[Rfam]
RNA: Eukaryotic small subunit ribosomal RNA, nucleotides 620 to 1166
RNA sequence: CGGUUAAAAAGCUCGUAGUUGAAUCUGUAUCGCACACUGUCAGUUCACCCCUUGUGUUUAACUGGUGAUGUGGGACGUCCUACUGGUGAGCUUAGCCUCGCGAGGGGACGGCCCAACUAAUAUCCCAUUGCAGUGCUCUUUACUGAAUGUCGAAUCGGGAGAUACGUUUACUUUGAACAAAUUAGAGUAACGCAGGUUAUUCUGAAUACUGCAUGGAAUAGGACCUCAGUUCUAUUUUAUUGGUUUUUGGAACUCUGAAGUAAUGAAUUAAUAGAGAUAGAUGGAAGCAUUCGUAUUGCGAUGUUAGAGGAAAACGUGAAAUUCUUGGAUCAUCGCAAGACAGAAGCGAAAGCAUUUGCCAAAAAUGUUUUCAUUAAUCAAGAACGAAAGUUAGAGGUUCGAAGGCGAUCAGAUACCGUCCUAAUUCUAAUCAUAAAUGACGUGCUAGCGAUCCGCCGAAGUUCCUUCGAUGACUUGGCGGGCAGCUUCCUGUGAACCAAAGCUUUUGGAUUCUGGGGAAAGUAUGGUUGCUGAAACUUAAAGGAAU
Numbered sequence: 001c002g003g004u005u006a007a008a009a010a011g012c013u014c015g016u017a018g019u020u021g022a023a024u025c026u027g028u029a030u031c032g033c034a035c036a037c038u039g040u041c042a043g044u045u046c047a048c049c050c051c052u053u054g055u056g057u058u059u060a061a062c063u064g065g066u067g068a069u070g071u072g073g074g075a076c077g078u079c080c081u082a083c084u085g086g087u088g089a090g091c092u093u094a095g096c097c098u099c100g101c102g103a104g105g106g107g108a109c110g111g112c113c114c115a116a117c118u119a120a121u122a123u124c125c126c127a128u129u130g131c132a133g134u135g136c137u138c139u140u141u142a143c144u145g146a147a148u149g150u151c152g153a154a155u156c157g158g159g160a161g162a163u164a165c166g167u168u169u170a171c172u173u174u175g176a177a178c179a180a181a182u183u184a185g186a187g188u189a190a191c192g193c194a195g196g197u198u199a200u201u202c203u204g205a206a207u208a209c210u211g212c213a214u215g216g217a218a219u220a221g222g223a224c225c226u227c228a229g230u231u232c233u234a235u236u237u238u239a240u241u242g243g244u245u246u247u248u249g250g251a252a253c254u255c256u257g258a259a260g261u262a263a264u265g266a267a268u269u270a271a272u273a274g275a276g277a278u279a280g281a282u283g284g285a286a287g288c289a290u291u292c293g294u295a296u297u298g299c300g301a302u303g304u305u306a307g308a309g310g311a312a313a314a315c316g317u318g319a320a321a322u323u324c325u326u327g328g329a330u331c332a333u334c335g336c337a338a339g340a341c342a343g344a345a346g347c348g349a350a351a352g353c354a355u356u357u358g359c360c361a362a363a364a365a366u367g368u369u370u371u372c373a374u375u376a377a378u379c380a381a382g383a384a385c386g387a388a389a390g391u392u393a394g395a396g397g398u399u400c401g402a403a404g405g406c407g408a409u410c411a412g413a414u415a416c417c418g419u420c421c422u423a424a425u426u427c428u429a430a431u432c433a434u435a436a437a438u439g440a441c442g443u444g445c446u447a448g449c450g451a452u453c454c455g456c457c458g459a460a461g462u463u464c465c466u467u468c469g470a471u472g473a474c475u476u477g478g479c480g481g482g483c484a485g486c487u488u489c490c491u492g493u494g495a496a497c498c499a500a501a502g503c504u505u506u507u508g509g510a511u512u513c514u515g516g517g518g519a520a521a522g523u524a525u526g527g528u529u530g531c532u533g534a535a536a537c538u539u540a541a542a543g544g545a546a547u
Base pairs, nucleotide, nucleotide: 001515002514003513009512011385013383014382018378019377020376274372275371276370277369278367279366282363287359288358289357293341296338297337298336299335300334301333302332303331307324308323309322346353347352390431391430392429393428394427395426404420405419406418407417442511444503445502447487448486449485452482453481454480455479456478457477458476459475461474462473463472492497517539518538526532527531